[Rfam]
RNA sequence: AAUUGAAAAUGAUGGAAGUAAUGAACGGGUGAUGAUCUAUUUCAUAUGAUCAAUAAAUCCAUUUCGCUGCGUUCUUUCUGAUUCGUUA
Numbered sequence: 001a002a003u004u005g006a007a008a009a010u011g012a013u014g015g016a017a018g019u020a021a022u023g024a025a026c027g028g029g030u031g032a033u034g035a036u037c038u039a040u041u042u043c044a045u046a047u048g049a050u051c052a053a054u055a056a057a058u059c060c061a062u063u064u065c066g067c068u069g070c071g072u073u074c075u076u077u078c079u080g081a082u083u084c085g086u087u088a
Stems, first nucleotide, its partner, number of pairs: 004085004